The record is a 53-nucleotide RNA, which matches "Mu-gpT-DE RNA" in Rfam. The sequence is in the family's curated seed alignment.
RNA sequence: CCCUGACAGUCGCAGUGUGUGACUGACAUUUGCCACGACAGGAGAUUAUCAUG
Numbered sequence: 001c002c003c004u005g006a007c008a009g010u011c012g013c014a015g016u017g018u019g020u021g022a023c024u025g026a027c028a029u030u031u032g033c034c035a036c037g038a039c040a041g042g043a044g045a046u047u048a049u050c051a052u053g
Base pairs, nucleotide, nucleotide: 002042003041004040005039007025008024009023010022011021